[Rfam]
RNA: sraA
RNA sequence: AGGAUAUUGAGUAUAUGGGGAUGCUUGGUCGACAUUCAAUGUCACGGGUGAGAGAAAAACAAAAGGGGAAAACAUUUUCCCCUUUUUAAGAUAACC
Numbered sequence: 001a002g003g004a005u006a007u008u009g010a011g012u013a014u015a016u017g018g019g020g021a022u023g024c025u026u027g028g029u030c031g032a033c034a035u036u037c038a039a040u041g042u043c044a045c046g047g048g049u050g051a052g053a054g055a056a057a058a059a060c061a062a063a064a065g066g067g068g069a070a071a072a073c074a075u076u077u078u079c080c081c082c083u084u085u086u087u088a089a090g091a092u093a094a095c096c
Stems, first nucleotide, its partner, number of pairs: 008038001010036003016032001018030002062086007070078003